A member of the RNA family "Fluoride riboswitch aptamer (crcB RNA motif)" from Pseudoflavonifractor capillosus, 75 nucleotides long. It is one of the family's seed sequences. The base pairs follow the family's consensus structure, which is taken from published work.
RNA sequence: GUGAAUCAGGGGAAUGAAGUGCUCCCCGGGGCGUGGCCCCGAACCGCGUUUGACGCUGAUGACUUCUGCAUUUUG
Numbered sequence: 001g002u003g004a005a006u007c008a009g010g011g012g013a014a015u016g017a018a019g020u021g022c023u024c025c026c027c028g029g030g031g032c033g034u035g036g037c038c039c040c041g042a043a044c045c046g047c048g049u050u051u052g053a054c055g056c057u058g059a060u061g062a063c064u065u066c067u068g069c070a071u072u073u074u075g
Stems, first nucleotide, its partner, number of pairs: 010025003016066005046056003